[Rfam]
RNA sequence: CUGAGAUCUUGGCUUUGAGAACUGAAUUCCAAGGGUGUUAGACUGGCAUUCAGCCCACGGAGUUCAGUUCUUAAGUUUGGAUGCUCCAG
Numbered sequence: 001c002u003g004a005g006a007u008c009u010u011g012g013c014u015u016u017g018a019g020a021a022c023u024g025a026a027u028u029c030c031a032a033g034g035g036u037g038u039u040a041g042a043c044u045g046g047c048a049u050u051c052a053g054c055c056c057a058c059g060g061a062g063u064u065c066a067g068u069u070c071u072u073a074a075g076u077u078u079g080g081a082u083g084c085u086c087c088a089g
Base pairs, nucleotide, nucleotide: 008080009079011077012076013075018071019070020069021068022067023066024065025064033056034055035054036053

The record is an 89-nucleotide RNA sequence from Electrophorus electricus, which matches "mir-146 microRNA precursor family" in Rfam. Gene Ontology terms of the family: RISC complex and miRNA-mediated post-transcriptional gene silencing. The organism belongs to Electrophorus, within Eukaryota. The family has 33 seed sequences and 1,617 matches in Rfam 15.1. It scores 65 bits against the family's covariance model. The family's consensus secondary structure was predicted with WAR.